[Rfam]
RNA sequence: GAUGAGCCAUAACCUGUUCCUCUUCGCAUUCUUUUUUACCUUCCCAUGAAUGGGGGGCUUUUCGUCAUAUGAAAAAAAGUGCGAAGACGAAUAACAAAGCCCCCUGAUACUGGGGGCUUUUUUUAU
Numbered sequence: 001g002a003u004g005a006g007c008c009a010u011a012a013c014c015u016g017u018u019c020c021u022c023u024u025c026g027c028a029u030u031c032u033u034u035u036u037u038a039c040c041u042u043c044c045c046a047u048g049a050a051u052g053g054g055g056g057g058c059u060u061u062u063c064g065u066c067a068u069a070u071g072a073a074a075a076a077a078a079g080u081g082c083g084a085a086g087a088c089g090a091a092u093a094a095c096a097a098a099g100c101c102c103c104c105u106g107a108u109a110c111u112g113g114g115g116g117c118u119u120u121u122u123u124u125a126u
Stems, first nucleotide, its partner, number of pairs: 016092004021087010032076003036072003042055004056066003096120009

The record is a 126-nucleotide RNA sequence from Serratia sp. DD3, which matches "Phenylalanine leader peptide" in Rfam. Rfam classes the family as a cis-regulatory leader. Its family is annotated with cellular amino acid metabolic process in the Gene Ontology.